[Rfam]
RNA sequence: CUUCUUUGGGGAGUAGCCUGCUUUCGAAUGCUUCGAAAGUGUUUAUGUCAACAUUCUCGGCAUGCAUGCCGUGGCAUAAACGACCACCCGGUUGGCGAGACCAUUGAUAUAUCCGCGUUCAGGAUCGGGCGCGUGGAUAUGUCAUUGGACGUUAGCCCGAUCGGU
Numbered sequence: 001c002u003u004c005u006u007u008g009g010g011g012a013g014u015a016g017c018c019u020g021c022u023u024u025c026g027a028a029u030g031c032u033u034c035g036a037a038a039g040u041g042u043u044u045a046u047g048u049c050a051a052c053a054u055u056c057u058c059g060g061c062a063u064g065c066a067u068g069c070c071g072u073g074g075c076a077u078a079a080a081c082g083a084c085c086a087c088c089c090g091g092u093u094g095g096c097g098a099g100a101c102c103a104u105u106g107a108u109a110u111a112u113c114c115g116c117g118u119u120c121a122g123g124a125u126c127g128g129g130c131g132c133g134u135g136g137a138u139a140u141g142u143c144a145u146u147g148g149a150c151g152u153u154a155g156c157c158c159g160a161u162c163g164g165u
Stems, first nucleotide, its partner, number of pairs: 021039003041081010058071005086165003

The family of this 165-nucleotide RNA sequence from Pseudomonas sp. HPB0071 is "Manganese Mn2+ riboswitch aptamer (yybP-ykoY)". The organism belongs to Pseudomonas, within Bacteria. It scores 61 bits against the family's covariance model. The pairing is the family consensus, mapped onto this sequence. This RNA was originally discovered in E. coli during a large scale screen and was named SraF. The family was later found to exist upstream of related families of protein genes in many bacteria, including the the yybP and ykoK genes in B. subtilis.